[Rfam]
Nucleotides: 078
Stems, first nucleotide, its partner, number of pairs: 001078002004075007
Number, partner (000 for none) and nucleotide at each position: 001078u002077a003000c004075g005074c006073a007072a008071a009070g010069c011000a012000u013000a014000u015000g016000a017000u018000g019000a020000g021000a022000a023000a024000a025000c026000a027000u028000u029000g030000a031000a032000a033000c034000u035000g036000a037000c038000u039000c040000u041000g042000u043000a044000u045000g046000a047000a048000g049000u050000g051000c052000a053000u054000u055000c056000a057000g058000u059000c060000c061000a062000a063000c064000a065000c066000u067000g068000a069010g070009c071008u072007u073006u074005g075004c076000a077002u078001g

Small nucleolar RNA SNORD69: a 78-nucleotide RNA from Pedionomus torquatus. Rfam classes the family as a C/D-box small nucleolar RNA. The literature on the family includes a 2001 paper in EMBO J by Huttenhofer et al., "RNomics: an experimental approach that identifies 201 candidates for novel, small, non-messenger RNAs in mouse". From the family's description: snoRNA HBII-210 belongs to the C/D family of snoRNAs. It is the human orthologue of the mouse MBII-210 and is predicted to guide the 2'O-ribose methylation of large 28S rRNA on residue G4464. It scores 49 bits against the family's covariance model.